[Rfam]
RNA: Manganese Mn2+ riboswitch aptamer (yybP-ykoY)
Organism: Bacillus sp. Y1
RNA sequence: UUUCUCAGUAAAGGGGAGUAGCGUCAGGAAUUUUCCUGAAACAAAGUCGUCAUUCCAUGGAGCAAUCCAUCGGCUUUGUUGGCAUUUUACUUGUGCUUAGCGAGACCUUUGCCUACAAUGGCAAGGGUCUCUUUAUUUUGUAGGCAAAAAAAUCGAU
Numbered sequence: 001u002u003u004c005u006c007a008g009u010a011a012a013g014g015g016g017a018g019u020a021g022c023g024u025c026a027g028g029a030a031u032u033u034u035c036c037u038g039a040a041a042c043a044a045a046g047u048c049g050u051c052a053u054u055c056c057a058u059g060g061a062g063c064a065a066u067c068c069a070u071c072g073g074c075u076u077u078g079u080u081g082g083c084a085u086u087u088u089a090c091u092u093g094u095g096c097u098u099a100g101c102g103a104g105a106c107c108u109u110u111g112c113c114u115a116c117a118a119u120g121g122c123a124a125g126g127g128u129c130u131c132u133u134u135a136u137u138u139u140g141u142a143g144g145c146a147a148a149a150a151a152a153u154c155g156a157u
Base pairs, nucleotide, nucleotide: 025038026037027036040080041079042078043077044076045075046074047073048072049071057070058069059068060067061066081157083155084153085152086151087150